[Rfam]
RNA sequence: AUCACCUGAAGAUCUGGUAAAAUGCAGAUUCUGAUUCAAUAGGUCUGGGAUGGACCUGAGAUUCUGCAUUUCUAGCAAGCUUCCAGGUGAUGCUGA
Numbered sequence: 001a002u003c004a005c006c007u008g009a010a011g012a013u014c015u016g017g018u019a020a021a022a023u024g025c026a027g028a029u030u031c032u033g034a035u036u037c038a039a040u041a042g043g044u045c046u047g048g049g050a051u052g053g054a055c056c057u058g059a060g061a062u063u064c065u066g067c068a069u070u071u072c073u074a075g076c077a078a079g080c081u082u083c084c085a086g087g088u089g090a091u092g093c094u095g096a
Base pairs, nucleotide, nucleotide: 003089004088005087010082011081014079015078016076018074019073020071021070022069024067025066026065027064028063030061031060032059
Shown here is a 96-nucleotide RNA from Phocoena sinus, a member of the family "mir-544 microRNA precursor family". The literature on the family includes a 2010 paper in Genes Dev by Chiang et al., "Mammalian microRNAs: experimental evaluation of novel and previously annotated genes". The family has 16 seed sequences and 10,750 matches in Rfam 15.1. A search with the family's covariance model found it, with a score of 68 bits. The organism belongs to Phocoena, within Eukaryota. Gene Ontology terms of the family: miRNA-mediated post-transcriptional gene silencing and RISC complex. The base pairs follow the family's consensus structure, which was predicted with RNAalifold.